[Rfam]
RNA sequence: GAGUUCAUCAAACUGGUUAUGAUGUGUUGUAUUUUAUCAUAUCACAGCCAGCUUUGAUGAGCUUAU
Number, nucleotide and partner (000 for none) at each position: 001g000002a000003g000004u000005u060006c059007a058008u057009c056010a055011a054012a053013c000014u050015g049016g048017u047018u046019a000020u044021g043022a042023u000024g000025u041026g040027u039028u000029g000030u000031a000032u000033u000034u000035u000036a000037u000038c000039a027040u026041a025042u022043c021044a020045c000046a018047g017048c016049c015050a014051g000052c000053u012054u011055u010056g009057a008058u007059g006060a005061g000062c000063u000064u000065a000066u000
Shown here is a 66-nucleotide sequence from Mytilus coruscus, a member of the family "mir-2 microRNA precursor family".
The family's consensus secondary structure was predicted with PFOLD.
The organism belongs to Mytilus, within Eukaryota.
A reference for the family is Ambros (2001), "microRNAs: tiny regulators with great potential", Cell.